[Rfam]
RNA sequence: AUCACAUCUCGGCCUUUUGGCUGGGAUCAAAGUGAAGUAUCUGUCCUUGGGUAGAGAAACCACAUUUCAUCUCUCAGUUGUGUCUGUUUUCAGGCAGAUUGCAACUUAGUUGUGUUUCUGUCUGUGAACAGAGCACAACUGAAAAUAUUAUUGUGAGGUGCCUGGUCACAGGGAAACAGCUGCCCACAGCAGUAACUCCCUC
Numbered sequence: 001a002u003c004a005c006a007u008c009u010c011g012g013c014c015u016u017u018u019g020g021c022u023g024g025g026a027u028c029a030a031a032g033u034g035a036a037g038u039a040u041c042u043g044u045c046c047u048u049g050g051g052u053a054g055a056g057a058a059a060c061c062a063c064a065u066u067u068c069a070u071c072u073c074u075c076a077g078u079u080g081u082g083u084c085u086g087u088u089u090u091c092a093g094g095c096a097g098a099u100u101g102c103a104a105c106u107u108a109g110u111u112g113u114g115u116u117u118c119u120g121u122c123u124g125u126g127a128a129c130a131g132a133g134c135a136c137a138a139c140u141g142a143a144a145a146u147a148u149u150a151u152u153g154u155g156a157g158g159u160g161c162c163u164g165g166u167c168a169c170a171g172g173g174a175a176a177c178a179g180c181u182g183c184c185c186a187c188a189g190c191a192g193u194a195a196c197u198c199c200c201u202c
Base pairs, nucleotide, nucleotide: 007026008025009024011022012021013020014019048064049063066082068080069079071077072076106142107141108140109139110138111137112136113135121132122131123130124129146194147193148192149191152188153187154186155185157183
Dot-bracket structure: ......(((.((((....)))).))).....................((.............)).(.((.((...)).)).).......................((((((((.......((((....))))..))))))))...((((..((((.(.........................).))))..))))........

A member of the RNA family "U2 spliceosomal RNA" from Acanthosepion pharaonis, 202 nucleotides long. The literature on the family includes a 1997 paper in Nucleic Acids Res by Zwieb, "The uRNA database". From the family's description: U2 is a small nuclear RNA (snRNA) component of the spliceosome (involved in pre-mRNA splicing). Complementary binding between U2 snRNA (in an area lying towards the 5' end but 3' to hairpin I) and the branchpoint sequence (BPS) of the intron results the bulging out of an unpaired adenosine, on the BPS, which initiates a nucleophilic attack at the intronic 5' splice site, thus starting the first of two transesterification reactions that mediate splicing.